[Rfam]
RNA sequence: GUUCCCCAUGAUGUUUUAUCAAACCAUGCUAAUUCUGAGAUUCUUUGGUGAGUGAAUUGUUCUUAUCCAGAUCUUCUGAGGGAACU
Numbered sequence: 001g002u003u004c005c006c007c008a009u010g011a012u013g014u015u016u017u018a019u020c021a022a023a024c025c026a027u028g029c030u031a032a033u034u035c036u037g038a039g040a041u042u043c044u045u046u047g048g049u050g051a052g053u054g055a056a057u058u059g060u061u062c063u064u065a066u067c068c069a070g071a072u073c074u075u076c077u078g079a080g081g082g083a084a085c086u
Stems, first nucleotide, its partner, number of pairs: 001085005